Nucleotides: 357
Base pairs, nucleotide, nucleotide: 001325002324003323004322009320010319011318012317013316014315015314016313018311019310020309035059036058037057038056039055044049060082061081062080063079064078065077066076067075068074083087095304096303097302098301099300100299101298102296103295106120107119108118123158124157125156126155127154128153129152130151131148134145135144136143137142161291162290163289164288166221167220168219171218172217173214174213175212176211177210180209181208182207187202188201189200190199191198222240223239224238225237226236227235241245261277262276263275264274265273266272338355339354340353341352342351
Number, partner (000 for none) and nucleotide at each position: 001325u002324g003323g004322g005000a006000u007000a008000c009320u010319c011318c012317a013316g014315u015314u016313g017000a018311g019310g020309g021000a022000a023000c024000u025000c026000g027000g028000c029000a030000a031000a032000c033000u034000a035059g036058c037057c038056u039055c040000a041000u042000a043000c044049c045000c046000u047000u048000g049044g050000u051000a052000u053000a054000u055039g056038a057037g058036g059035u060082g061081c062080g063079c064078a065077u066076c067075u068074c069000g070000a071000u072000g073000a074068g075067a076066g077065a078064u079063g080062c081061g082060u083087c084000g085000c086000a087083g088000u089000g090000a091000c092000u093000a094000g095304g096303a097302g098301g099300c100299u101298c102296c103295g104000a105000c106120u107119g108118u109000u110000u111000a112000a113000u114000a115000a116000a117000a118108a119107c120106a121000u122000a123158g124157c125156a126155a127154g128153c129152u130151g131148c132000u133000a134145g135144c136143c137142c138000g139000a140000a141000a142137g143136g144135g145134u146000g147000u148131g149000u150000a151130c152129a153128g154127c155126u156125u157124g158123u159000g160000a161291c162290g163289u164288c165000u166221g167220c168219c169000c170000a171218g172217u173214g174213c175212c176211g177210g178000u179000a180209c181208g182207u183000g184000a185000a186000a187202c188201c189200u190199c191198a192000g193000u194000u195000c196000a197000a198191u199190g200189g201188g202187g203000c204000u205000a206000a207182g208181c209180g210177c211176c212175g213174g214173u215000a216000a217172a218171c219168g220167g221166c222240g223239g224238g225237a226236g227235u228000a229000a230000c231000u232000a233000u234000a235227a236226c237225u238224c239223u240222c241245u242000u243000a244000a245241g246000g247000u248000a249000g250000c251000g252000u253000a254000a255000u256000a257000c258000c259000u260000u261277g262276c263275c264274g265273c266272u267000u268000a269000a270000u271000u272266g273265g274264c275263g276262g277261c278000u279000u280000g281000c282000a283000u284000g285000a286000a287000u288164g289163g290162c291161g292000g293000a294000a295103c296102g297000a298101g299100a300099g301098c302097c303096u304095c305000g306000c307000u308000g309020u310019c311018c312000c313016c314015a315014a316013c317012u318011g319010g320009a321000a322004c323003c324002c325001a326000g327000u328000g329000a330000a331000c332000c333000u334000a335000c336000u337000g338355c339354c340353u341352g342351g343000u344000g345000c346000a347000c348000a349000u350000g351342c352341c353340a354339g355338g356000g357000a

Rfam assigns this 357-nucleotide part of an RNA from a Theionarchaea archaeon to the family "Archaeal large subunit ribosomal RNA".
Its family is annotated with ribosome and structural constituent of ribosome in the Gene Ontology.
The base pairs follow the family's consensus structure, which is taken from published work.